The family of this 107-nucleotide RNA sequence from Myotis davidii is "Vault RNA". It scores 70 bits against the family's covariance model.
RNA sequence: GGGCUGGCUUUAGCUCAGCGGUUCCUUCGCAUACAAGACUUCCUGGUCGCACGUCGCUCACUUGAGCGACAGCGGUUCAGGACCCGCGGGCGCUCUCCAGCCCUUUU
Numbered sequence: 001g002g003g004c005u006g007g008c009u010u011u012a013g014c015u016c017a018g019c020g021g022u023u024c025c026u027u028c029g030c031a032u033a034c035a036a037g038a039c040u041u042c043c044u045g046g047u048c049g050c051a052c053g054u055c056g057c058u059c060a061c062u063u064g065a066g067c068g069a070c071a072g073c074g075g076u077u078c079a080g081g082a083c084c085c086g087c088g089g090g091c092g093c094u095c096u097c098c099a100g101c102c103c104u105u106u107u
Stems, first nucleotide, its partner, number of pairs: 002102006013091004018087004026081002029078001

Rfam classes the family as a non-coding RNA gene.
For this family Rfam cites "Evolution of Vault RNAs" (Stadler et al., Mol Biol Evol, 2009).